[Rfam]
RNA sequence: CCGGUUCCGGUUCACGCCCGAGCCCGUCGCGUACGGCGCGACGAGUGAUGACGGCGACCCGGCGACC
Number, nucleotide and partner (000 for none) at each position: 001c000002c000003g067004g066005u065006u000007c062008c061009g060010g059011u000012u000013c000014a000015c056016g055017c054018c053019c050020g049021a000022g000023c000024c000025c000026g000027u000028c000029g000030c000031g000032u000033a000034c000035g000036g000037c000038g000039c000040g000041a000042c000043g000044a000045g000046u000047g000048a000049u020050g019051a000052c000053g018054g017055c016056g015057a000058c000059c010060c009061g008062g007063c000064g000065a005066c004067c003